[Rfam]
RNA sequence: AUCUGGGUGAUGAAGAAAAUCGUUCGGAUUCCCACUGAUUUUCAUGAUAAUUACAACCAGAUACUUCUGACGGAU
Numbered sequence: 001a002u003c004u005g006g007g008u009g010a011u012g013a014a015g016a017a018a019a020u021c022g023u024u025c026g027g028a029u030u031c032c033c034a035c036u037g038a039u040u041u042u043c044a045u046g047a048u049a050a051u052u053a054c055a056a057c058c059a060g061a062u063a064c065u066u067c068u069g070a071c072g073g074a075u
Stems, first nucleotide, its partner, number of pairs: 001075005
Description: Rfam assigns this 75-nucleotide RNA sequence from Triticum aestivum to the family "Small nucleolar RNA R12". The source organism's lineage runs through Eukaryota, commelinids, Poales, Triticinae and Triticum. The family's consensus secondary structure was predicted with PFOLD. snoR12 is a C/D box small nucleolar RNA, which acts as a methylation guide for 25S ribosomal RNA in plants. snoR12 has been alternatively named snoZ44 in Arabidopsis and snoZ131 in rice.